[Rfam]
RNA sequence: GUUGGUUACGGUGAUAUGUCGCCAACUUCUUUAGCGGGAAAAAUAAUUGGUGGAUUUUGUGCCUCAUUCGGAAUACUCGUGGUUGCACUUCCGAUAUCUAUUAUUGGAAGUAAU
Numbered sequence: 001g002u003u004g005g006u007u008a009c010g011g012u013g014a015u016a017u018g019u020c021g022c023c024a025a026c027u028u029c030u031u032u033a034g035c036g037g038g039a040a041a042a043a044u045a046a047u048u049g050g051u052g053g054a055u056u057u058u059g060u061g062c063c064u065c066a067u068u069c070g071g072a073a074u075a076c077u078c079g080u081g082g083u084u085g086c087a088c089u090u091c092c093g094a095u096a097u098c099u100a101u102u103a104u105u106g107g108a109a110g111u112a113a114u
Base pairs, nucleotide, nucleotide: 001114002113004111007108009106010105011104013102014101015100016099018097019096037077038076040074049063050062051061
RNA: Potassium channel RNA editing signal
Organism: Hydra vulgaris